[Rfam]
Nucleotides: 083
Base pairs, nucleotide, nucleotide: 003080004079011036012035016031017030018029019028020027021026034069039076040075041074042073044072045071046070048066049065050064051063052062053061
Number, partner (000 for none) and nucleotide at each position: 001000a002000c003080c004079g005000a006000c007000a008000a009000a010000g011036g012035c013000u014000a015000a016031u017030c018029u019028g020027u021026c022000g023000u024000a025000a026021g027020g028019c029018a030017g031016g032000g033000g034069c035012g036011c037000a038000a039076a040075g041074u042073u043000u044072c045071c046070g047000g048066u049065c050064c051063u052062g053061a054000u055000c056000c057000a058000u059000g060000a061053u062052c063051a064050g065049g066048a067000a068000a069034g070046c071045g072044g073042g074041a075040c076039u077000g078000c079004c080003g081000a082000a083000g